Xanthine riboswitch aptamer (NMT1 RNA): a 54-nucleotide RNA.
[Rfam]
RNA sequence: AAGAAGAGUAGAAGCGGUCAGGAAGCGUUCAGUUUCCGGGACAUUGCUCUUGGG
Dot-bracket structure: ....((((((....[..((.((((((.....)))))).]))...))))))....

Gene Ontology term of the family: purine nucleobase binding.
A reference for the family is Yu and Breaker (2020), "A bacterial riboswitch class senses xanthine and uric acid to regulate genes associated with purine oxidation", RNA.